The record is a 102-nucleotide sequence from Pelagirhabdus alkalitolerans, which matches "Purine riboswitch aptamer" in Rfam. Rfam's curators write: Riboswitches are metabolite binding domains within certain messenger RNAs that serve as precision sensors for their corresponding targets. The base pairs follow the family's consensus structure, which is taken from published work. Clan: Purine riboswitches. NCBI's taxonomy places the organism under Bacteria, Bacillati, Bacillota, Caryophanales, Pelagirhabdus. Gene Ontology term of the family: purine nucleobase biosynthetic process.

RNA sequence: UACAAUAUAAACAUGCACCUCUGUAUAUCCUCGAUAAUACGGUUCGAGAGUAUCUACCGGGAAUCCUUAAAAUUCCUGACUAUGGAGGCAGAUAAUUGUGAU
Numbered sequence: 001u002a003c004a005a006u007a008u009a010a011a012c013a014u015g016c017a018c019c020u021c022u023g024u025a026u027a028u029c030c031u032c033g034a035u036a037a038u039a040c041g042g043u044u045c046g047a048g049a050g051u052a053u054c055u056a057c058c059g060g061g062a063a064u065c066c067u068u069a070a071a072a073u074u075c076c077u078g079a080c081u082a083u084g085g086a087g088g089c090a091g092a093u094a095a096u097u098g099u100g101a102u
Stems, first nucleotide, its partner, number of pairs: 018088008030048005058078007
Dot-bracket structure: .................((((((((....(((((.........))))).........(((((((.......)))))))..))))))))..............